The family of this 33-nucleotide RNA from Triticum urartu is "L31-Coriobacteria ribosomal protein leader".

RNA sequence: GUCCUGGCCGGAAACCAGGACGAGACUAAGGAG
Numbered sequence: 001g002u003c004c005u006g007g008c009c010g011g012a013a014a015c016c017a018g019g020a021c022g023a024g025a026c027u028a029a030g031g032a033g
Base pairs, nucleotide, nucleotide: 001021002020003019004018005017006016007015

The source organism's lineage runs through Eukaryota, Petrosaviidae, Triticeae, Triticinae and Triticum. The family has 75 seed sequences and 105 matches in Rfam 15.1.